[Rfam]
RNA sequence: CCCUACUGUGCCUGCUGAACUGGUAUCAGUGUUGUUUUAUAGCUGGCUCAGUUCAGCAGGAACAGGAG
Number, nucleotide and partner (000 for none) at each position: 001c000002c000003c068004u067005a000006c065007u000008g063009u062010g000011c060012c059013u058014g000015c056016u055017g054018a053019a052020c051021u050022g049023g048024u000025a000026u046027c045028a044029g043030u042031g000032u000033u000034g000035u000036u000037u000038u000039a000040u000041a000042g030043c029044u028045g027046g026047c000048u023049c022050a021051g020052u019053u018054c017055a016056g015057c000058a013059g012060g011061a000062a009063c008064a000065g006066g000067a004068g003